[Rfam]
RNA: int-alpA RNA
RNA sequence: CCAGUGCCUAGCCCGACGGGGCGAAAACCGGAUUCCUUUCCACCGGCUGGCACUGGUUUUUAUUGAGGGA
Numbered sequence: 001c002c003a004g005u006g007c008c009u010a011g012c013c014c015g016a017c018g019g020g021g022c023g024a025a026a027a028c029c030g031g032a033u034u035c036c037u038u039u040c041c042a043c044c045g046g047c048u049g050g051c052a053c054u055g056g057u058u059u060u061u062a063u064u065g066a067g068g069g070a
Stems, first nucleotide, its partner, number of pairs: 001056008011022004028046004036069005
Dot-bracket structure: ((((((((..((((....)))).....((((....[[[[[..))))..))))))))........]]]]].